[Rfam]
Rfam assigns this 88-nucleotide RNA to the family "GA-cis RNA". The base pairs follow the family's consensus structure, which is taken from published work. It is annotated as a small RNA.
RNA sequence: AGGAGGAGGGAGCAUCAUGAACGAAGUGAAUGAUUUAGGAUGCGACCGACGAUCUGCCGCCGAGUGAAACGAGGGGGCAUUACAUUAA
Numbered sequence: 001a002g003g004a005g006g007a008g009g010g011a012g013c014a015u016c017a018u019g020a021a022c023g024a025a026g027u028g029a030a031u032g033a034u035u036u037a038g039g040a041u042g043c044g045a046c047c048g049a050c051g052a053u054c055u056g057c058c059g060c061c062g063a064g065u066g067a068a069a070c071g072a073g074g075g076g077g078c079a080u081u082a083c084a085u086u087a088a
Stems, first nucleotide, its partner, number of pairs: 008047002012043002016032003021027001056078003060074002064070002